A member of the RNA family "T-box leader" from Virgibacillus indicus, 221 nucleotides long.
It scores 116 bits against the family's covariance model.
Taxonomically the source falls in Virgibacillus (Bacteria, Bacillota, Bacilli, Caryophanales).
Pairs were carried over by alignment from the consensus structure, which is taken from published work.
Its family is annotated with tRNA binding in the Gene Ontology.

[Rfam]
RNA sequence: UCUUGAACGUUGAAGAGGAAAAGUAGAAAACGAAAGACUUAUCCAGAGAGAAUCACCAUUGGCUGGGAGUGAUUCAAAGCAUCGUUUUCGAAGUGCCCCUCUGAGUCCGUUAUGGAAAUUCAGUACAUAACGGCGGCACUCUGCCGUUAUCAGAGCUUGAGUUGGGAGGAGAAUUAUCCACCAAACAGAGUGGGACCGCGCUAACUAUGAGCGUCUCUGUG
Numbered sequence: 001u002c003u004u005g006a007a008c009g010u011u012g013a014a015g016a017g018g019a020a021a022a023g024u025a026g027a028a029a030a031c032g033a034a035a036g037a038c039u040u041a042u043c044c045a046g047a048g049a050g051a052a053u054c055a056c057c058a059u060u061g062g063c064u065g066g067g068a069g070u071g072a073u074u075c076a077a078a079g080c081a082u083c084g085u086u087u088u089c090g091a092a093g094u095g096c097c098c099c100u101c102u103g104a105g106u107c108c109g110u111u112a113u114g115g116a117a118a119u120u121c122a123g124u125a126c127a128u129a130a131c132g133g134c135g136g137c138a139c140u141c142u143g144c145c146g147u148u149a150u151c152a153g154a155g156c157u158u159g160a161g162u163u164g165g166g167a168g169g170a171g172a173a174u175u176a177u178c179c180a181c182c183a184a185a186c187a188g189a190g191u192g193g194g195a196c197c198g199c200g201c202u203a204a205c206u207a208u209g210a211g212c213g214u215c216u217c218u219g220u221g
Stems, first nucleotide, its partner, number of pairs: 007106002015101004026089006039077002051074006108132007134146003165182002168179003187218004198214005